[Rfam]
RNA sequence: AUCCGAGUGCACGGGCAGUACGCAUAUCAGUGAGGAUUCGUCCGAGAUUGCGUUUUUGCUAGUUGAAAACUUUUACAGUUUGACCGCUCCUGUUGGUCUUCGGAUCGGCAGGGAAUCUUUGGAACCUUUUUGC
Numbered sequence: 001a002u003c004c005g006a007g008u009g010c011a012c013g014g015g016c017a018g019u020a021c022g023c024a025u026a027u028c029a030g031u032g033a034g035g036a037u038u039c040g041u042c043c044g045a046g047a048u049u050g051c052g053u054u055u056u057u058g059c060u061a062g063u064u065g066a067a068a069a070c071u072u073u074u075a076c077a078g079u080u081u082g083a084c085c086g087c088u089c090c091u092g093u094u095g096g097u098c099u100u101c102g103g104a105u106c107g108g109c110a111g112g113g114a115a116u117c118u119u120u121g122g123a124a125c126c127u128u129u130u131u132g133c
Stems, first nucleotide, its partner, number of pairs: 020053005026048003034043003088113011
A member of the RNA family "U4 spliceosomal RNA" from Piedraia hortae, 133 nucleotides long. A reference for the family is Thomas et al. (1990), "The spliceosomal snRNAs of Caenorhabditis elegans", Nucleic Acids Res. U4 small nuclear RNA (U4 snRNA) is a component of the major U2-dependent spliceosome. It scores 97 bits against the family's covariance model.